Shown here is a 71-nucleotide RNA sequence from a Dehalococcoidia bacterium, a member of the family "tRNA". The family's consensus secondary structure is taken from published work. Lineage of the source: Bacteria > Bacillati > Chloroflexota > Dehalococcoidia. Rfam links the family to the GO term triplet codon-amino acid adaptor activity. Rfam's curators write: Transfer RNA (tRNA) molecules are approximately 80 nucleotides in length.

[Rfam]
RNA sequence: GGCGACGUAGCCAAGUGGUAAGGCAGAGGUCUGCAAAACCUCCAUCACCGGUUCGAAUCCGGUCGUCGCCU
Numbered sequence: 001g002g003c004g005a006c007g008u009a010g011c012c013a014a015g016u017g018g019u020a021a022g023g024c025a026g027a028g029g030u031c032u033g034c035a036a037a038a039c040c041u042c043c044a045u046c047a048c049c050g051g052u053u054c055g056a057a058u059c060c061g062g063u064c065g066u067c068g069c070c071u
Base pairs, nucleotide, nucleotide: 001070002069003068004067005066006065007064010024011023012022026042027041028040029039030038047063048062049061050060051059